[Rfam]
RNA: SAM riboswitch aptamer (S box leader)
Nucleotides: 101
Base pairs, nucleotide, nucleotide: 001101002100003099004098005097006096007095008094013042014041015040016039017038021031022030023029025089026088027087028086043081044080045079046078048077049076051072052071085093
Number, partner (000 for none) and nucleotide at each position: 001101u002100u003099u004098u005097u006096a007095u008094a009000c010000a011000g012000a013042g014041g015040c016039g017038u018000g019000g020000a021031g022030a023029g024000a025089c026088a027087g028086g029023c030022u031021c032000u033000g034000c035000g036000a037000a038017a039016c040015g041014c042013c043081g044080g045079c046078a047000a048077c049076c050000a051072c052071c053000a054000g055000c056000g057000g058000g059000a060000a061000g062000c063000u064000u065000u066000u067000c068000c069000c070000g071052g072051g073000a074000a075000c076049g077048g078046u079045g080044c081043c082000a083000a084000g085093u086028c087027c088026u089025g090000a091000c092000c093085a094008u095007a096006u097005a098004a099003a100002a101001a